Description:
Small nucleolar RNA ACA64: a 124-nucleotide RNA from Bucco capensis. Gene Ontology terms of the family: RNA processing and nucleolus. The family's RNA type in Rfam is H/ACA-box small nucleolar RNA. The family has 30 seed sequences and 9,537 matches in Rfam 15.1.

RNA sequence: ACAGUCUGAAAAUCACUUGGGGUCUUCUGUGGUCCCUGGUGCGAUAACUGUGCCAACAGCAGAGGGAGCAUUAAACUCAUUGCCCACGGUAAAGUGUGGGGAGUGAAACCCAUGUUGUAUGGGU
Numbered sequence: 001a002c003a004g005u006c007u008g009a010a011a012a013u014c015a016c017u018u019g020g021g022g023u024c025u026u027c028u029g030u031g032g033u034c035c036c037u038g039g040u041g042c043g044a045u046a047a048c049u050g051u052g053c054c055a056a057c058a059g060c061a062g063a064g065g066g067a068g069c070a071u072u073a074a075a076c077u078c079a080u081u082g083c084c085c086a087c088g089g090u091a092a093a094g095u096g097u098g099g100g101g102a103g104u105g106a107a108a109c110c111c112a113u114g115u116u117g118u119a120u121g122g123g124u
Stems, first nucleotide, its partner, number of pairs: 006050001008048001010045001014041003021034004067116005077106005085098003